[Rfam]
RNA sequence: CCGGGCUUAUGCGGACGCCCGUUUAGACGGGUUUCGUCCAAGUCCGC
Number, nucleotide and partner (000 for none) at each position: 001c000002c021003g020004g019005g018006c017007u000008u000009a000010u000011g047012c046013g045014g044015a043016c000017g006018c005019c004020c003021g002022u000023u000024u000025a000026g038027a037028c036029g035030g034031g000032u000033u000034u030035c029036g028037u027038c026039c000040a000041a000042g000043u015044c014045c013046g012047c011
Annotation: This 47-nucleotide RNA sequence from Sphingomonas sp. Leaf339 belongs to the Rfam family "chrB-b RNA". A search with the family's covariance model found it, with a score of 42 bits. Lineage of the source: Bacteria > Pseudomonadati > Pseudomonadota > Alphaproteobacteria > Sphingomonas.